Shown here is a 190-nucleotide sequence, a member of the family "IMES-1 RNA motif".
[Rfam]
RNA sequence: CUUAAUUAUCCGAUCCGGAAACAACUCGAGACGGGAGAAGGAAGAGAUAAAGAAGUUAGAGAACGGAAGGUGAAAGCUCUAAUAAAGAAAGGUACCAAAAGAUUUAUUAGACCACCAAGAUCAAAAGAGAAAUUGAUCAAGGAGCUAGAGAAAAAAACUCAAAUCUAGACACUUUCGAACUCGAACUAAA
Numbered sequence: 001c002u003u004a005a006u007u008a009u010c011c012g013a014u015c016c017g018g019a020a021a022c023a024a025c026u027c028g029a030g031a032c033g034g035g036a037g038a039a040g041g042a043a044g045a046g047a048u049a050a051a052g053a054a055g056u057u058a059g060a061g062a063a064c065g066g067a068a069g070g071u072g073a074a075a076g077c078u079c080u081a082a083u084a085a086a087g088a089a090a091g092g093u094a095c096c097a098a099a100a101g102a103u104u105u106a107u108u109a110g111a112c113c114a115c116c117a118a119g120a121u122c123a124a125a126a127g128a129g130a131a132a133u134u135g136a137u138c139a140a141g142g143a144g145c146u147a148g149a150g151a152a153a154a155a156a157a158c159u160c161a162a163a164u165c166u167a168g169a170c171a172c173u174u175u176c177g178a179a180c181u182c183g184a185a186c187u188a189a190a
Stems, first nucleotide, its partner, number of pairs: 001055003014042003064177006078111009119138005127160003145168005
It is one of the family's seed sequences. The literature on the family includes a 2009 paper in Nature by Weinberg et al., "Exceptional structured noncoding RNAs revealed by bacterial metagenome analysis". Pairs were carried over by alignment from the consensus structure, which is taken from published work.